[Rfam]
The record is a 208-nucleotide RNA from Paenibacillus beijingensis, which matches "FMN riboswitch aptamer (RFN element)" in Rfam. The match comes from Rfam's covariance-model search (98 bits). The organism belongs to Paenibacillus, within Bacteria. Gene Ontology term of the family: FMN binding.

Nucleotides: 208
Base pairs, nucleotide, nucleotide: 003206004205005204006203007202008201009200010199017029018028019027031188032187033178034177035095036094037093038092099153100152158174159173160172161171162170180191181190182189
Number, partner (000 for none) and nucleotide at each position: 001000g002000c003206u004205u005204u006203c007202c008201u009200u010199c011000g012000g013000g014000g015000u016000g017029g018028g019027g020000u021000g022000u023000a024000a025000u026000u027019c028018c029017c030000a031188a032187c033178c034177g035095g036094c037093g038092g039000u040000g041000a042000u043000c044000g045000g046000c047000u048000a049000a050000c051000a052000g053000a054000c055000g056000u057000g058000u059000g060000c061000g062000g063000u064000u065000c066000c067000a068000a069000c070000c071000g072000g073000g074000c075000g076000u077000u078000c079000g080000u081000u082000a083000u084000c085000c086000g087000u088000c089000a090000g091000u092038c093037c094036g095035u096000g097000a098000c099153c100152c101000g102000g103000a104000c105000c106000u107000g108000c109000a110000a111000u112000g113000u114000u115000u116000u117000c118000g119000a120000u121000g122000c123000u124000c125000a126000a127000c128000c129000g130000a131000u132000g133000a134000g135000a136000g137000a138000a139000a140000a141000c142000g143000u144000g145000c146000g147000g148000c149000g150000a151000a152100g153099g154000u155000g156000g157000a158174u159173c160172c161171g162170g163000u164000g165000c166000a167000a168000u169000u170162c171161c172160g173159g174158g175000a176000c177034c178033g179000a180191c181190a182189g183000u184000a185000u186000a187032g188031u189182c190181u191180g192000g193000a194000u195000g196000g197000g198000a199010g200009a201008a202007g203006g204005a205004g206003a207000c208000g